Pseudomonas sRNA P10: a 72-nucleotide RNA sequence from Ectopseudomonas mendocina. It is annotated as a small RNA.
RNA sequence: CCUCGGCGAUCCCACCGCCUGCCCGAUUCCCGGCCACGGCACCAACCCGAUCGCCGCCGGCUCGCCCGACGU
Numbered sequence: 001c002c003u004c005g006g007c008g009a010u011c012c013c014a015c016c017g018c019c020u021g022c023c024c025g026a027u028u029c030c031c032g033g034c035c036a037c038g039g040c041a042c043c044a045a046c047c048c049g050a051u052c053g054c055c056g057c058c059g060g061c062u063c064g065c066c067c068g069a070c071g072u
Base pairs, nucleotide, nucleotide: 007071008070017040018039019038020036021035023033024032025031051069052068053067
Dot-bracket structure: ......((........(((((.(((.....))).)).)))..........(((.............))))).
Pairs were carried over by alignment from the consensus structure, which was predicted with WAR. The source organism's lineage runs through Bacteria, Pseudomonadota, Gammaproteobacteria, Pseudomonadales and Ectopseudomonas mendocina.